[Rfam]
Rfam assigns this 82-nucleotide RNA sequence from Metabacillus harenarius to the family "c-di-GMP-I riboswitch aptamer".
RNA sequence: UUACUAAUUUGGCAAACCUCUCGAAAGAUUGGGACGCAGAGCUAUAGGGGCUUAUGUAGAAUACUGCCAGCCAGUUGCAAUG
Numbered sequence: 001u002u003a004c005u006a007a008u009u010u011g012g013c014a015a016a017c018c019u020c021u022c023g024a025a026a027g028a029u030u031g032g033g034a035c036g037c038a039g040a041g042c043u044a045u046a047g048g049g050g051c052u053u054a055u056g057u058a059g060a061a062u063a064c065u066g067c068c069a070g071c072c073a074g075u076u077g078c079a080a081u082g
Base pairs, nucleotide, nucleotide: 012037013036017032018031021028022027040076041075042074043073047072048071049068050067051066056064057063058062
Dot-bracket structure: ...........((...((..((....))..))...))..((((...(((((....(((...))).)))..))))))......